[Rfam]
RNA: Streptomyces sRNA scr5239
Nucleotides: 205
Stems, first nucleotide, its partner, number of pairs: 003029004008024005032072005038066002041064002044061002046057002078154003082150003087145004160174003164170002178199007
Number, partner (000 for none) and nucleotide at each position: 001000c002000u003029u004028c005027c006026g007000c008024u009023c010022u011021c012020c013000c014000c015000g016000c017000a018000c019000a020012g021011g022010a023009g024008g025000g026006c027005g028004g029003a030000u031000c032072g033071a034070g035069g036068c037000c038066c039065g040000c041064g042063g043000c044061g045060c046057u047056c048000u049000c050000u051000g052000c053000c054000c055000u056047g057046a058000c059000u060045g061044c062000g063042c064041c065039c066038g067000g068036g069035c070034c071033u072032u073000a074000c075000a076000g077000a078154u079153c080152g081000a082150c083149c084148g085000g086000u087145c088144c089143c090142g091000g092000g093000a094000c095000g096000g097000g098000g099000c100000c101000g102000u103000g104000c105000c106000c107000c108000c109000g110000a111000c112000c113000g114000c115000a116000c117000a118000g119000g120000g121000g122000g123000c124000a125000c126000c127000u128000c129000c130000c131000g132000c133000c134000c135000a136000u137000u138000g139000g140000u141000a142090c143089g144088g145087g146000a147000c148084c149083g150082g151000c152080c153079g154078a155000u156000g157000u158000c159000a160174g161173c162172u163000c164170c165169g166000g167000g168000c169165u170164g171000c172162g173161g174160u175000g176000c177000c178199g179198g180197a181196c182195a183194g184193g185000u186000u187000g188000a189000g190000g191000g192000u193184c194183c195182u196181g197180u198179c199178c200000c201000g202000g203000c204000g205000c